Small nucleolar RNA SNORA74: a 194-nucleotide RNA from Bos grunniens. The base pairs follow the family's consensus structure, which was predicted with PFOLD. Its family is annotated with nucleolus and RNA processing in the Gene Ontology. The match comes from Rfam's covariance-model search (90 bits). Rfam's curators write: U19 belongs to the H/ACA class of snoRNAs. snoRNAs bind a number of proteins (including dyskerin, Gar1p and Nop10p in the case of the H/ACA class) to form snoRNP complexes. This class are thought to guide the sites of modification of uridines to pseudouridines by forming direct base pairing interactions with substrate RNAs. Targets may include ribosomal and spliceosomal RNAs but the exact functions of many snoRNAs, including U19, are not confirmed. Rfam classes the family as an H/ACA-box small nucleolar RNA. The organism belongs to Bos, within Eukaryota.

RNA sequence: CCCAGCAGCAGUCAGCUGCCGGGACAGCCAUUCCUGUGACAGCGUUACACUGCUGGGAGAGGAACGCUCUGCCCUCUCCUCCAGUUGCCUUCGCUGUUCCGUGGCGUCCGGCGCUGGUGAGGGCAGGGCUGUGCUCCCCUGAGGUGUGCUAGCGCGCACCCUGGCUGCUUAGUGCUGGUGUGGGAGCAGACACA
Numbered sequence: 001c002c003c004a005g006c007a008g009c010a011g012u013c014a015g016c017u018g019c020c021g022g023g024a025c026a027g028c029c030a031u032u033c034c035u036g037u038g039a040c041a042g043c044g045u046u047a048c049a050c051u052g053c054u055g056g057g058a059g060a061g062g063a064a065c066g067c068u069c070u071g072c073c074c075u076c077u078c079c080u081c082c083a084g085u086u087g088c089c090u091u092c093g094c095u096g097u098u099c100c101g102u103g104g105c106g107u108c109c110g111g112c113g114c115u116g117g118u119g120a121g122g123g124c125a126g127g128g129c130u131g132u133g134c135u136c137c138c139c140u141g142a143g144g145u146g147u148g149c150u151a152g153c154g155c156g157c158a159c160c161c162u163g164g165c166u167g168c169u170u171a172g173u174g175c176u177g178g179u180g181u182g183g184g185a186g187c188a189g190a191c192a193c194a
Base pairs, nucleotide, nucleotide: 001057002056003055004054005053006052007051008050011048012047015043016042017041018040019038020036021035022034023033024032066129067128068127069126070125071124072123073122074121079119081117082116083115084112085111086110087109092106093105094104095103132188133187134186135185136184137183138182146175147174148173150171151170152169